[Rfam]
RNA sequence: UGAAGAAAGUGAUGAAAGUUGUAGAUAGGUGAUGAUCUUUUAUAUGAUCGAUAAACAUUUCAACUCGCUACGUUCUUUCUGAUUCUUAC
Numbered sequence: 001u002g003a004a005g006a007a008a009g010u011g012a013u014g015a016a017a018g019u020u021g022u023a024g025a026u027a028g029g030u031g032a033u034g035a036u037c038u039u040u041u042a043u044a045u046g047a048u049c050g051a052u053a054a055a056c057a058u059u060u061c062a063a064c065u066c067g068c069u070a071c072g073u074u075c076u077u078u079c080u081g082a083u084u085c086u087u088a089c
Stems, first nucleotide, its partner, number of pairs: 004086004
RNA: Small nucleolar RNA R32/R81/Z41
Organism: Raphanus sativus